[Rfam]
RNA sequence: UCCUUAUAUAGAGCCGGGGGAGGAAACUGGUCUUACGAUCCCGCAGCAACCUCUUGCUUAUAAAGAAGGUGCUCAGUCCAGCAGAAAUAGUUCUGAAAGAUAAGGA
Numbered sequence: 001u002c003c004u005u006a007u008a009u010a011g012a013g014c015c016g017g018g019g020g021a022g023g024a025a026a027c028u029g030g031u032c033u034u035a036c037g038a039u040c041c042c043g044c045a046g047c048a049a050c051c052u053c054u055u056g057c058u059u060a061u062a063a064a065g066a067a068g069g070u071g072c073u074c075a076g077u078c079c080a081g082c083a084g085a086a087a088u089a090g091u092u093c094u095g096a097a098a099g100a101u102a103a104g105g106a
Stems, first nucleotide, its partner, number of pairs: 001106007013044001015043004022033003027081004045073004050069002052066004077098001082095005